The family of this 104-nucleotide RNA sequence from Vreelandella zhuhanensis is "t44 RNA".
RNA sequence: AUAGUAACGCCUUGAAAACACACAUGCACCGACACAUGGUCCCGGGUGCCGCUGCGGCUGAAUUGGUCGCGUGGUCGGAUCCAUGGGGUGCGUGGAGGCCUAAC
Numbered sequence: 001a002u003a004g005u006a007a008c009g010c011c012u013u014g015a016a017a018a019c020a021c022a023c024a025u026g027c028a029c030c031g032a033c034a035c036a037u038g039g040u041c042c043c044g045g046g047u048g049c050c051g052c053u054g055c056g057g058c059u060g061a062a063u064u065g066g067u068c069g070c071g072u073g074g075u076c077g078g079a080u081c082c083a084u085g086g087g088g089u090g091c092g093u094g095g096a097g098g099c100c101u102a103a104c
Stems, first nucleotide, its partner, number of pairs: 023094008035085005040079003048075005
Annotation
Lineage of the source: Bacteria > Pseudomonadota > Gammaproteobacteria > Oceanospirillales > Vreelandella. A search with the family's covariance model found it, with a score of 74 bits. The family's RNA type in Rfam is small RNA. Rfam describes the family as follows. This family consists of a number of bacterial RNA genes of between 135 and 170 bases in length. The t44 gene has been identified in several species of enteric bacteria but homologs have also been identified in Pseudomonas and Coxiella species. The t44 gene is found between the map and rpsB genes in all species in the full alignment apart from Shigella flexneri. The function of this RNA is unknown.